About this RNA
ffh sRNA: a 52-nucleotide RNA from Silicimonas algicola. A search with the family's covariance model found it, with a score of 55 bits. The source organism's lineage runs through Bacteria, Pseudomonadati, Pseudomonadota, Paracoccaceae and Silicimonas. For this family Rfam cites "Identification of candidate structured RNAs in the marine organism 'Candidatus Pelagibacter ubique'" (Meyer et al., BMC Genomics, 2009).

RNA sequence: UCCGCAUGGGAUCGCCCCCCACCAGCGCGUCGCGCCCGUGGGGGCGUUUGGC
Numbered sequence: 001u002c003c004g005c006a007u008g009g010g011a012u013c014g015c016c017c018c019c020c021a022c023c024a025g026c027g028c029g030u031c032g033c034g035c036c037c038g039u040g041g042g043g044g045c046g047u048u049u050g051g052c
Stems, first nucleotide, its partner, number of pairs: 016044007025035004